RNA sequence: CAUCUUUCCUGAUGAAAUAUUCCGGAUGUUAAACACAUUUUGUCUGAAAAGCGCAAAAACCCCAUGUUGAGAUUUCCGUUGCCUUCCUUCUGAUCAAAGAA
Numbered sequence: 001c002a003u004c005u006u007u008c009c010u011g012a013u014g015a016a017a018u019a020u021u022c023c024g025g026a027u028g029u030u031a032a033a034c035a036c037a038u039u040u041u042g043u044c045u046g047a048a049a050a051g052c053g054c055a056a057a058a059a060c061c062c063c064a065u066g067u068u069g070a071g072a073u074u075u076c077c078g079u080u081g082c083c084u085u086c087c088u089u090c091u092g093a094u095c096a097a098a099g100a101a
Stems, first nucleotide, its partner, number of pairs: 003100003023078004

A member of the RNA family "Small nucleolar RNA Z13/snr52" from Coniochaeta sp. 2T2.1, 101 nucleotides long. Gene Ontology terms of the family: nucleolus and RNA processing. It is annotated as a C/D-box small nucleolar RNA. Lineage of the source: Eukaryota > Ascomycota > saccharomyceta > Sordariomycetidae > Coniochaeta.